[Rfam]
Nucleotides: 093
Base pairs, nucleotide, nucleotide: 030048031047032046033045034044035043061085062084063083064082065081066080067079068078071077
Number, partner (000 for none) and nucleotide at each position: 001000a002000a003000c004000c005000a006000a007000c008000a009000a010000u011000a012000a013000c014000c015000u016000u017000u018000u019000u020000a021000u022000u023000u024000u025000u026000c027000a028000u029000u030048u031047u032046a033045c034044u035043c036000c037000u038000u039000a040000g041000u042000u043035g044034a045033g046032u047031a048030a049000u050000u051000a052000c053000u054000c055000c056000u057000u058000u059000u060000u061085c062084c063083g064082c065081u066080a067079g068078g069000c070000c071077u072000a073000a074000c075000c076000a077071a078068c079067c080066u081065a082064g083063u084062g085061g086000u087000u088000u089000u090000u091000u092000u093000a
Rfam assigns this 93-nucleotide RNA sequence from Enterococcus columbae to the family "Enterococcus sRNA 84". A reference for the family is Innocenti et al. (2015), "Whole-genome mapping of 5' RNA ends in bacteria by tagged sequencing: a comprehensive view in Enterococcus faecalis", RNA. Taxonomically the source falls in Enterococcus columbae (Bacteria, Bacillota, Bacilli, Lactobacillales). The family's consensus secondary structure was predicted with RNAfold. Rfam classes the family as an antisense RNA.